Pseudomonas sRNA CrcZ: a 373-nucleotide RNA from Metapseudomonas resinovorans. The family's consensus secondary structure was predicted with WAR. Rfam classes the family as a small RNA. Gene Ontology term of the family: carbon catabolite repression of transcription. The match comes from Rfam's covariance-model search (210 bits). A reference for the family is Livny et al. (2006), "Identification of 17 Pseudomonas aeruginosa sRNAs and prediction of sRNA-encoding genes in 10 diverse pathogens using the bioinformatic tool sRNAPredict2", Nucleic Acids Res. The organism belongs to Metapseudomonas resinovorans, within Bacteria.
RNA sequence: ACAACAACAAUAAAAAGCUUCAAAAAGAAUAUUUCGACUCUGAAAAAACAAAAACAACAGCCCAGAGAAGAAGCAAACCGAUUUUUUUGGAGAGGGUGUGCCGUUCCGCACCCGGCAACUAGAGCAACAGAACAAUAAAACUACCUUGAGGUAGCGGCGCUCCGGUUGGUUCAGAAAUGACGAUGGCAUGAUCAGCGUCCAAAAAAAUCCGUUUGCCCUAGGUCCAUGUUGGGACUAGCCAAUUCUGACUCGUUGGAGUCAGUAGCGAAGAACAACAACGAACACGAUAAAAACAACAACAAUAAAAGAAAAACAUUUGAGGGGAGCCCAGGCUCCCCUCAGUGCUUUCCGGCUUCCGCAAAAUCAUUCCCCA
Numbered sequence: 001a002c003a004a005c006a007a008c009a010a011u012a013a014a015a016a017g018c019u020u021c022a023a024a025a026a027g028a029a030u031a032u033u034u035c036g037a038c039u040c041u042g043a044a045a046a047a048a049c050a051a052a053a054a055c056a057a058c059a060g061c062c063c064a065g066a067g068a069a070g071a072a073g074c075a076a077a078c079c080g081a082u083u084u085u086u087u088u089g090g091a092g093a094g095g096g097u098g099u100g101c102c103g104u105u106c107c108g109c110a111c112c113c114g115g116c117a118a119c120u121a122g123a124g125c126a127a128c129a130g131a132a133c134a135a136u137a138a139a140a141c142u143a144c145c146u147u148g149a150g151g152u153a154g155c156g157g158c159g160c161u162c163c164g165g166u167u168g169g170u171u172c173a174g175a176a177a178u179g180a181c182g183a184u185g186g187c188a189u190g191a192u193c194a195g196c197g198u199c200c201a202a203a204a205a206a207a208u209c210c211g212u213u214u215g216c217c218c219u220a221g222g223u224c225c226a227u228g229u230u231g232g233g234a235c236u237a238g239c240c241a242a243u244u245c246u247g248a249c250u251c252g253u254u255g256g257a258g259u260c261a262g263u264a265g266c267g268a269a270g271a272a273c274a275a276c277a278a279c280g281a282a283c284a285c286g287a288u289a290a291a292a293a294c295a296a297c298a299a300c301a302a303u304a305a306a307a308g309a310a311a312a313a314c315a316u317u318u319g320a321g322g323g324g325a326g327c328c329c330a331g332g333c334u335c336c337c338c339u340c341a342g343u344g345c346u347u348u349c350c351g352g353c354u355u356c357c358g359c360a361a362a363a364u365c366a367u368u369c370c371c372c373a
Base pairs, nucleotide, nucleotide: 035070038067039066040065041064085204086203087202088201089200099197100196101195116168117167118166119165120164122162141154142153143152144151145150222235223234224233225232256355257354258353259352260351262283263282303344304343319340320339321338322337323336324335325334326333327332
Dot-bracket structure: ..................................(..((((......................))))..)..............(((((.........(((..............(((((.(..................(((((....))))).......).)))))..........................)))..))))).................((((......))))....................(((((.((..................))...................((..............(((((((((....)))))))))..))......)))))..................